Annotation:
Rfam assigns this 117-nucleotide RNA sequence from Rhodothalassium salexigens to the family "rpsB sRNA". The organism belongs to Rhodothalassium salexigens, within Bacteria. The literature on the family includes a 2009 paper in BMC Genomics by Meyer et al., "Identification of candidate structured RNAs in the marine organism 'Candidatus Pelagibacter ubique'". The family's RNA type in Rfam is small RNA.
[Rfam]
RNA sequence: CACACGCAGGGUUCGGGCCCGCCGGGGGAGACAUCCCCGUCCGGCCCCUCCGGUGUCCAUGGGAUCGACCCAUGGAUCGCUAACCCUGCGGCGGAUCAACCGGAAAAGGAGACAGGA
Number, nucleotide and partner (000 for none) at each position: 001c093002a000003c091004a000005c090006g089007c088008a087009g086010g085011g084012u000013u000014c000015g048016g047017g000018c000019c000020c000021g000022c000023c039024g038025g000026g036027g000028g000029a000030g000031a000032c000033a000034u000035c000036c026037c000038c024039g023040u000041c000042c000043g000044g000045c000046c000047c016048c015049u000050c000051c000052g000053g000054u000055g078056u076057c075058c074059a073060u072061g071062g070063g069064a000065u000066c000067g000068a000069c063070c062071c061072a060073u059074g058075g057076a056077u000078c055079g000080c000081u000082a000083a000084c011085c010086c009087u008088g007089c006090g005091g003092c000093g001094g000095a000096u000097c000098a000099a000100c000101c000102g000103g000104a000105a000106a000107a000108g000109g000110a000111g000112a000113c000114a000115g000116g000117a000